This 54-nucleotide sequence from Coregonus sp. 'balchen' belongs to the Rfam family "UnaL2 LINE 3' element".
The organism belongs to Coregonus, within Eukaryota.
The eel long interspersed element (LINE) UnaL2 and its partner short interspersed element (SINE) share a conserved 3' tail containing a stem-loop that is critical for their retrotransposition. Presumably, the first step of retrotransposition is the recognition of their 3' tails by UnaL2-encoded reverse transcriptase. The solution structure of a 17-nucleotide RNA derived from the 3' tail of UnaL2 was determined by NMR.
It scores 71 bits against the family's covariance model.
RNA sequence: UGUGAGUAAGUUUGUAAGUCGCUCUGGAUAAGAGCGUCUGCUAAAUGACGUAAA
Numbered sequence: 001u002g003u004g005a006g007u008a009a010g011u012u013u014g015u016a017a018g019u020c021g022c023u024c025u026g027g028a029u030a031a032g033a034g035c036g037u038c039u040g041c042u043a044a045a046u047g048a049c050g051u052a053a054a
Stems, first nucleotide, its partner, number of pairs: 013043001014041003020036006